[Rfam]
RNA sequence: UAGGGGAGUCAGGGCCAGGAGCCCCCCACCAGAGCCCAGGAUAACCCUCAAUAUCGGGGGGCA
Numbered sequence: 001u002a003g004g005g006g007a008g009u010c011a012g013g014g015c016c017a018g019g020a021g022c023c024c025c026c027c028a029c030c031a032g033a034g035c036c037c038a039g040g041a042u043a044a045c046c047c048u049c050a051a052u053a054u055c056g057g058g059g060g061g062c063a
Stems, first nucleotide, its partner, number of pairs: 008042003012037004016032001018030002022061006

The family of this 63-nucleotide sequence from Mesocricetus auratus is "Gag/pol translational readthrough site". It scores 73 bits against the family's covariance model. The family has 8 seed sequences and 3,368 matches in Rfam 15.1. Taxonomically the source falls in Mesocricetus (Eukaryota, Vertebrata, Euteleostomi, Muroidea). Gene Ontology term of the family: viral translational readthrough. The literature on the family includes a 1994 paper in EMBO J by Wills et al., "Pseudoknot-dependent read-through of retroviral gag termination codons: importance of sequences in the spacer and loop 2". The family's RNA type in Rfam is cis-regulatory element.